[Rfam]
The record is a 293-nucleotide RNA from Planoprotostelium fungivorum, which matches "Metazoan signal recognition particle RNA" in Rfam. The source organism's lineage runs through Eukaryota, Amoebozoa, Variosea, Cavosteliida and Planoprotostelium. Pairs were carried over by alignment from the consensus structure, which is taken from published work.
RNA sequence: GUGGGGUGAUUCGCAAACACCUGUCACAGCGGCUGCUGCACGUCAAACUAUGGAAUGAUAUUCGGUGCAGUAGGAUGUCUGAGCUCCCUGUGUAGAGGGACCUCCCAUGACAACUACGGAAUCAUCAGAGUCCACCUCAGGCAGCUGAGGGGGUCUCGGGUGUUAAAGAACUGGGAACGGCGCCAGGCGGGAAACCGAGCAGCGAGCACCAGUCGUUCAGAAAGAGUGUCAGGAAACUGGUCCUGAGCAGGGUCAGAAGGGUCGGCUGCAUUCGAAUAUCGAACCAUUUUUUU
Dot-bracket structure: ((((((((.((...)).)))))....(((......))))))...(((..((((..((((((..((((((((....((.((((....(((((.(...((((((..((.(((((.((.(.((((((((.(((.((.((((((....)))))).)).))).))))(...)..(((((......(((....(((....)))....)))....))))).)))).)..))..))))))).....))))))).))))).))))......))))))))))...))))))..))))..))).
Numbered sequence: 001g002u003g004g005g006g007u008g009a010u011u012c013g014c015a016a017a018c019a020c021c022u023g024u025c026a027c028a029g030c031g032g033c034u035g036c037u038g039c040a041c042g043u044c045a046a047a048c049u050a051u052g053g054a055a056u057g058a059u060a061u062u063c064g065g066u067g068c069a070g071u072a073g074g075a076u077g078u079c080u081g082a083g084c085u086c087c088c089u090g091u092g093u094a095g096a097g098g099g100a101c102c103u104c105c106c107a108u109g110a111c112a113a114c115u116a117c118g119g120a121a122u123c124a125u126c127a128g129a130g131u132c133c134a135c136c137u138c139a140g141g142c143a144g145c146u147g148a149g150g151g152g153g154u155c156u157c158g159g160g161u162g163u164u165a166a167a168g169a170a171c172u173g174g175g176a177a178c179g180g181c182g183c184c185a186g187g188c189g190g191g192a193a194a195c196c197g198a199g200c201a202g203c204g205a206g207c208a209c210c211a212g213u214c215g216u217u218c219a220g221a222a223a224g225a226g227u228g229u230c231a232g233g234a235a236a237c238u239g240g241u242c243c244u245g246a247g248c249a250g251g252g253u254c255a256g257a258a259g260g261g262u263c264g265g266c267u268g269c270a271u272u273c274g275a276a277u278a279u280c281g282a283a284c285c286a287u288u289u290u291u292u293u
Stems, first nucleotide, its partner, number of pairs: 001041003004022005010016002027038003045292003050287004056281006064272008076264002079256004087251005093245001097244006105233002108231005114224002117220001119218004123162004128157003132153002135150006163167001170213005181204003188197003
Notes: Rfam links the family to the GO terms signal recognition particle, endoplasmic reticulum targeting and SRP-dependent cotranslational protein targeting to membrane, signal sequence recognition.